[Rfam]
RNA sequence: UAAAUAAAACUGGAGACUCUAUAUGAAAUGUUUCUAUGUUGCUAAAAACAGAAGAAAAGAAACAAGGCAAGAUAUCGUUUCACUCGCCCUUUUUUUGAUUGGCGAUUUGAUUGUUGCUUGUCUACAU
Numbered sequence: 001u002a003a004a005u006a007a008a009a010c011u012g013g014a015g016a017c018u019c020u021a022u023a024u025g026a027a028a029u030g031u032u033u034c035u036a037u038g039u040u041g042c043u044a045a046a047a048a049c050a051g052a053a054g055a056a057a058a059g060a061a062a063c064a065a066g067g068c069a070a071g072a073u074a075u076c077g078u079u080u081c082a083c084u085c086g087c088c089c090u091u092u093u094u095u096u097g098a099u100u101g102g103c104g105a106u107u108u109g110a111u112u113g114u115u116g117c118u119u120g121u122c123u124a125c126a127u
Stems, first nucleotide, its partner, number of pairs: 008040003013034005065123002068120004074111004084105005091098002
A member of the RNA family "Small nucleolar RNA snoR111" from Thalictrum thalictroides, 127 nucleotides long.
The source organism's lineage runs through Eukaryota, Viridiplantae, Mesangiospermae, Thalictroideae and Thalictrum.
It is annotated as an H/ACA-box small nucleolar RNA.
Its family is annotated with nucleolus and RNA processing in the Gene Ontology.
The base pairs follow the family's consensus structure, which was predicted with WAR.
The match comes from Rfam's covariance-model search (76 bits).